[Rfam]
RNA: Giardia U1 spliceosomal RNA
Organism: Giardia duodenalis
RNA sequence: ACUUACCUCAAGGGUGGCGACGAGCCAGUGUUCGGGCCAGGCUGGUGCUGCGCAUACCGCGCUGGCACUGGUCACGGGGCAGUGCUCUCAGACCUGCUACCGUACCCUUUUAAUUUUUCCU
Numbered sequence: 001a002c003u004u005a006c007c008u009c010a011a012g013g014g015u016g017g018c019g020a021c022g023a024g025c026c027a028g029u030g031u032u033c034g035g036g037c038c039a040g041g042c043u044g045g046u047g048c049u050g051c052g053c054a055u056a057c058c059g060c061g062c063u064g065g066c067a068c069u070g071g072u073c074a075c076g077g078g079g080c081a082g083u084g085c086u087c088u089c090a091g092a093c094c095u096g097c098u099a100c101c102g103u104a105c106c107c108u109u110u111u112a113a114u115u116u117u118u119c120c121u
Stems, first nucleotide, its partner, number of pairs: 010109006016038003021034005040073010050062004074103004078098005